[Rfam]
RNA: Histone 3' UTR stem-loop
Organism: Synaphobranchus kaupii
RNA sequence: CAAAAGGCUCUUUUCAGAGCCACCUACUUUCUUAUCAAAAGAUAAU
Numbered sequence: 001c002a003a004a005a006g007g008c009u010c011u012u013u014u015c016a017g018a019g020c021c022a023c024c025u026a027c028u029u030u031c032u033u034a035u036c037a038a039a040a041g042a043u044a045a046u
Base pairs, nucleotide, nucleotide: 006021007020008019009018010017011016